[Rfam]
RNA sequence: GGGGAUCAUCGAGAAGCUAAGAUGUUACCCGGUAGAAUCUUCCUAAAAUGAAAAUGAGCCUCAUAUCGAUACCUUGCCUAGCCAUGAGUAAAGCUCUGUAAGUCAGCAUUGAGGAGAAAUAA
Dot-bracket structure: (((.(.((((..........)))).).))).............................((...........(((((...((..........))...)))))............))......